[Rfam]
RNA sequence: GACCGUGAACCGUGAGGAAACGUCUCCCCUUGCGGAUCCGGCGAAAUUCAAGCAAAUAAAGGAG
Numbered sequence: 001g002a003c004c005g006u007g008a009a010c011c012g013u014g015a016g017g018a019a020a021c022g023u024c025u026c027c028c029c030u031u032g033c034g035g036a037u038c039c040g041g042c043g044a045a046a047u048u049c050a051a052g053c054a055a056a057u058a059a060a061g062g063a064g
Stems, first nucleotide, its partner, number of pairs: 003041003007038002010035008
Rfam assigns this 64-nucleotide RNA to the family "L20-Deltaproteobacteria ribosomal protein leader". By type it is a cis-regulatory leader. The literature on the family includes a 2020 paper in BMC Microbiol by Eckert and Weinberg, "Discovery of 20 novel ribosomal leader candidates in bacteria and archaea". The sequence is in the family's curated seed alignment.